[Rfam]
RNA sequence: UGGUUUUCUGCUUCAACAAUGUUUGGAUAGAACCG
Numbered sequence: 001u002g003g004u005u006u007u008c009u010g011c012u013u014c015a016a017c018a019a020u021g022u023u024u025g026g027a028u029a030g031a032a033c034c035g
Stems, first nucleotide, its partner, number of pairs: 001035003005032002008030001010028001012027005017021001
RNA: Iron response element I